MIR7502 microRNA precursor family: a 145-nucleotide RNA from Gossypium hirsutum.
It scores 104 bits against the family's covariance model.
The organism belongs to Gossypium, within Eukaryota.
Rfam links the family to the GO terms RISC complex and miRNA-mediated post-transcriptional gene silencing.
RNA sequence: UGUUAAAAAUUUCAUCCAUUUUUUCUGUUAAAAACUGGUAUAGCUGACAAAAUAACCAGACAUUUACACUUUAUGUGUUAUGUGUACUUCAUGUUCACAUACAAAGAUCAACUUUUAACAGUAAGAAUGGAUGAAAAUUUUUAUA
Numbered sequence: 001u002g003u004u005a006a007a008a009a010u011u012u013c014a015u016c017c018a019u020u021u022u023u024u025c026u027g028u029u030a031a032a033a034a035c036u037g038g039u040a041u042a043g044c045u046g047a048c049a050a051a052a053u054a055a056c057c058a059g060a061c062a063u064u065u066a067c068a069c070u071u072u073a074u075g076u077g078u079u080a081u082g083u084g085u086a087c088u089u090c091a092u093g094u095u096c097a098c099a100u101a102c103a104a105a106g107a108u109c110a111a112c113u114u115u116u117a118a119c120a121g122u123a124a125g126a127a128u129g130g131a132u133g134a135a136a137a138u139u140u141u142u143a144u145a
Base pairs, nucleotide, nucleotide: 002144003143005141006140007139008138010136011135012134013133014132015131016130018128019127020126021125022124023123025121026120028118029117030116031115032114033113